Rhodo-rpoB RNA: a 92-nucleotide sequence from Roseovarius nubinhibens.
The family's RNA type in Rfam is cis-regulatory element.
The source organism's lineage runs through Bacteria, Pseudomonadati, Pseudomonadota, Roseobacteraceae and Roseovarius nubinhibens.
The sequence is in the family's curated seed alignment.

RNA sequence: CGAUCGGGAGGCACGUGGUGGGACACGCGCCGGGAAUAGAUCGAACCCGUUGUCUCUGAUGGGUGUGGUGCCGGGGCCCGACGGCAGCUGCA
Numbered sequence: 001c002g003a004u005c006g007g008g009a010g011g012c013a014c015g016u017g018g019u020g021g022g023a024c025a026c027g028c029g030c031c032g033g034g035a036a037u038a039g040a041u042c043g044a045a046c047c048c049g050u051u052g053u054c055u056c057u058g059a060u061g062g063g064u065g066u067g068g069u070g071c072c073g074g075g076g077c078c079c080g081a082c083g084g085c086a087g088c089u090g091c092a
Stems, first nucleotide, its partner, number of pairs: 001043005010031003014027004064092005069086005